A member of the RNA family "Small nucleolar RNA R16" from Dendrobium catenatum, 88 nucleotides long.
The family's consensus secondary structure was predicted with PFOLD.
[Rfam]
RNA sequence: UGGAGCAGAUGAUGCAAAUCAAAUUUCUUAUCCUACACUCUGAAAUCCUUUGAGGACUUCUAAAUUCCGCUUAUUGUCUGAUGCUCUG
Dot-bracket structure: ..(((((..........................................................................)))))..
Numbered sequence: 001u002g003g004a005g006c007a008g009a010u011g012a013u014g015c016a017a018a019u020c021a022a023a024u025u026u027c028u029u030a031u032c033c034u035a036c037a038c039u040c041u042g043a044a045a046u047c048c049u050u051u052g053a054g055g056a057c058u059u060c061u062a063a064a065u066u067c068c069g070c071u072u073a074u075u076g077u078c079u080g081a082u083g084c085u086c087u088g
Stems, first nucleotide, its partner, number of pairs: 003086005